Record summary: The record is a 94-nucleotide RNA from Rhododendron williamsianum, which matches "MIR535 microRNA precursor family" in Rfam. The family has 20 seed sequences and 544 matches in Rfam 15.1. Pairs were carried over by alignment from the consensus structure, which was predicted with RNAalifold. For this family Rfam cites "Conservation and divergence of microRNAs and their functions in Euphorbiaceous plants" (Zeng et al., Nucleic Acids Res, 2010).
RNA sequence: CAAAACGUAUGACGACGAUAGAAAGCACGCUUGUACACAAUCAUGUCCAAGCAUGAACGCAUACUAGCGUGCUCUCUCUCGUCGUCAAACAAUA
Numbered sequence: 001c002a003a004a005a006c007g008u009a010u011g012a013c014g015a016c017g018a019u020a021g022a023a024a025g026c027a028c029g030c031u032u033g034u035a036c037a038c039a040a041u042c043a044u045g046u047c048c049a050a051g052c053a054u055g056a057a058c059g060c061a062u063a064c065u066a067g068c069g070u071g072c073u074c075u076c077u078c079u080c081g082u083c084g085u086c087a088a089a090c091a092a093u094a
Stems, first nucleotide, its partner, number of pairs: 010087005016081002020077002025072007033064002